[Rfam]
RNA: MIR5643 microRNA precursor family
RNA sequence: GUGUAGCCGUAAUCCGUAUGAGUCUUUGUCUUUGUAUCUUCUAACAAGGAUACAAUAUUUAGGCUUUUAAGAUCUGGUUGCGA
Numbered sequence: 001g002u003g004u005a006g007c008c009g010u011a012a013u014c015c016g017u018a019u020g021a022g023u024c025u026u027u028g029u030c031u032u033u034g035u036a037u038c039u040u041c042u043a044a045c046a047a048g049g050a051u052a053c054a055a056u057a058u059u060u061a062g063g064c065u066u067u068u069a070a071g072a073u074c075u076g077g078u079u080g081c082g083a
Stems, first nucleotide, its partner, number of pairs: 002082008012073003020066006028058002032055009